[Rfam]
RNA: mir-172 microRNA precursor family
Organism: Hibiscus syriacus
Nucleotides: 148
Base pairs, nucleotide, nucleotide: 010139012137013136015134016133017132018131019130020129021128022127023126024125025124026123027122028121029120030119032117033116
Number, partner (000 for none) and nucleotide at each position: 001000u002000u003000u004000u005000u006000u007000g008000c009000a010139g011000a012137u013136g014000g015134a016133g017132c018131a019130u020129c021128a022127u023126c024125a025124a026123g027122a028121u029120u030119c031000a032117c033116a034000a035000a036000a037000u038000a039000a040000u041000u042000c043000u044000a045000g046000g047000g048000a049000a050000a051000u052000u053000g054000a055000a056000c057000a058000a059000u060000g061000g062000u063000g064000a065000a066000a067000a068000c069000c070000g071000u072000c073000c074000u075000u076000u077000u078000c079000g080000u081000u082000c083000a084000c085000c086000a087000u088000a089000u090000a091000u092000a093000c094000a095000a096000a097000u098000u099000g100000g101000c102000c103000c104000u105000u106000u107000g108000a109000a110000u111000a112000u113000a114000u115000a116033u117032g118000a119030g120029a121028a122027u123026c124025u125024u126023g127022a128021u129020g130019a131018u132017g133016c134015u135000g136013c137012a138000g139010c140000g141000g142000c143000a144000a145000u146000a147000a148000a